[Rfam]
RNA sequence: AAACUGUUAUACGACUGACGGAUAAAAGUGGAAUUGACCACAUGAAGUAUAAUGGAAGCGAGCCGGCCGUCUGGGCAUUUGUC
Dot-bracket structure: ...(((((((((..(.[[[[[......((((......))))..)..)))))))))....(.(((..]]]]]..))).).....
RNA: ZMP/ZTP riboswitch aptamer (pfl RNA motif)
Organism: Zhenpiania hominis